[Rfam]
RNA sequence: GGCAACUUGCCCCUGAAAGGGGGUGCUAUUCAUGUACGAACUUAUGUCUUUGGUUAUCGCUCCACUCUUUGUGGGUCUAGUAAUCACGCUAGUUAAUCAUUGGUUAGACGAUUAGCAGAUAACUUCGCAAGUUGUCCUAACCCACACGCCUAUCCGCAAGGCGAAUAA
Numbered sequence: 001g002g003c004a005a006c007u008u009g010c011c012c013c014u015g016a017a018a019g020g021g022g023g024u025g026c027u028a029u030u031c032a033u034g035u036a037c038g039a040a041c042u043u044a045u046g047u048c049u050u051u052g053g054u055u056a057u058c059g060c061u062c063c064a065c066u067c068u069u070u071g072u073g074g075g076u077c078u079a080g081u082a083a084u085c086a087c088g089c090u091a092g093u094u095a096a097u098c099a100u101u102g103g104u105u106a107g108a109c110g111a112u113u114a115g116c117a118g119a120u121a122a123c124u125u126c127g128c129a130a131g132u133u134g135u136c137c138u139a140a141c142c143c144a145c146a147c148g149c150c151u152a153u154c155c156g157c158a159a160g161g162c163g164a165a166u167a168a
Base pairs, nucleotide, nucleotide: 001136002135003134004133005132006131007130008129011022012021013020014019023037024036025035026034052124053123054122055121056120057119059116060115061075062074063073064072065071077092078091079090080089081088093107094106095105096104097103098102147163148162149161150160151159
RNA: Enterococcus sRNA B11
Organism: Enterococcus canis